[Rfam]
RNA sequence: GUGCAGGACGUUUAGGGUUCCGCCGCGCCCCCGCGGGUCUGGUCCGAGAAACGUCACCUGACCGGCAAAUUCCGGGCGGGCACACGGCGGGGCAAAAUCCCGGGAGGC
Numbered sequence: 001g002u003g004c005a006g007g008a009c010g011u012u013u014a015g016g017g018u019u020c021c022g023c024c025g026c027g028c029c030c031c032c033g034c035g036g037g038u039c040u041g042g043u044c045c046g047a048g049a050a051a052c053g054u055c056a057c058c059u060g061a062c063c064g065g066c067a068a069a070u071u072c073c074g075g076g077c078g079g080g081c082a083c084a085c086g087g088c089g090g091g092g093c094a095a096a097a098u099c100c101c102g103g104g105a106g107g108c
Base pairs, nucleotide, nucleotide: 007055008054009053010052011051012050015045016044020042021041022039023036024035025034026033027032057080058079059078060077062075063074064073065072083103085106089101090100091099
The family of this 108-nucleotide RNA sequence from Roseivivax sp. THAF197b is "Guanidine-I riboswitch aptamer". Rfam describes the family as follows. This family represents a conserved RNA structure found upstream of the ykkC and yxkD genes in Bacillus subtilis and related genes in other bacteria. The function of this family is unclear although it has been suggested that it may function to switch on efflux pumps and detoxification systems in response to harmful environmental molecules. Its family is annotated with regulation of gene expression in the Gene Ontology.